[Rfam]
RNA: PreQ1 (pre queuosine) riboswitch aptamer
Organism: Bacillus sp. J14TS2
RNA sequence: UUGGGAGAGGUUCAUAGCGAUUAACCCUCUAUAAAAAACUAUGGAUGA
Numbered sequence: 001u002u003g004g005g006a007g008a009g010g011u012u013c014a015u016a017g018c019g020a021u022u023a024a025c026c027c028u029c030u031a032u033a034a035a036a037a038a039c040u041a042u043g044g045a046u047g048a
Base pairs, nucleotide, nucleotide: 006030007029008028009027010026015041016040